[Rfam]
Nucleotides: 122
Stems, first nucleotide, its partner, number of pairs: 006113001012107005019058011033045004064089011090099002
Number, partner (000 for none) and nucleotide at each position: 001000a002000a003000u004000a005000a006113g007000a008000u009000a010000c011000c012107g013106c014105u015104c016103c017000g018000a019058g020057u021056c022055c023054a024053u025052g026051u027050g028049c029048c030000u031000g032000g033045a034044a035043a036042u037000g038000a039000a040000u041000g042036a043035u044034u045033u046000a047000c048029g049028g050027c051026g052025c053024a054023u055022g056021g057020a058019c059000c060000g061000a062000u063000a064089g065088g066087g067086u068085a069084u070083u071082a072081u073080u074079g075000g076000a077000a078000a079074c080073g081072g082071u083070a084069a085068u086067g087066c088065c089064u090099c091098c092000c093000u094000u095000u096000g097000u098091g099090g100000a101000a102000a103016g104015g105014a106013g107012u108000u109000a110000a111000a112000a113006u114000c115000a116000c117000u118000u119000u120000u121000u122000a

About this RNA
Rfam assigns this 122-nucleotide RNA sequence from Anaerosolibacter carboniphilus to the family "Molybdenum/Tungsten riboswitch aptamer (Moco RNA motif)". Rfam 15.1 lists 1,248 matches to the family in 836 species. It scores 76 bits against the family's covariance model.